The family of this 129-nucleotide RNA from Lamprotornis superbus is "U11 spliceosomal RNA". Taxonomically the source falls in Lamprotornis (Eukaryota, Eumetazoa, Vertebrata, Passeriformes). The literature on the family includes a 1988 paper in Proc Natl Acad Sci U S A by Montzka and Steitz, "Additional low-abundance human small nuclear ribonucleoproteins: U11, U12, etc". The family's consensus secondary structure is taken from published work. Clan: U1 clan. Rfam 15.1 lists 2,595 matches to the family in 1,202 species.
RNA sequence: AAAAAGGGCUUCUGCCGUGUGUGGCACGAGGGGGCCAUGCGCCACUCUCGCGGAAUCGACAUCAAGAGAUUUCGGAAGCACAAUUUUUGUGAGGGAGGGCCGCCGGUAACCGCGCGUUCUGGCGCCCCA
Numbered sequence: 001a002a003a004a005a006g007g008g009c010u011u012c013u014g015c016c017g018u019g020u021g022u023g024g025c026a027c028g029a030g031g032g033g034g035c036c037a038u039g040c041g042c043c044a045c046u047c048u049c050g051c052g053g054a055a056u057c058g059a060c061a062u063c064a065a066g067a068g069a070u071u072u073c074g075g076a077a078g079c080a081c082a083a084u085u086u087u088u089g090u091g092a093g094g095g096a097g098g099g100c101c102g103c104c105g106g107u108a109a110c111c112g113c114g115c116g117u118u119c120u121g122g123c124g125c126c127c128c129a
Base pairs, nucleotide, nucleotide: 008079009078010077011076012075013026014025015024016023017022027050028049029048030047031046032045034042035041051074052073053072054071055070056069057068097127098126099125100124102123103122104121105120106119108118109117110116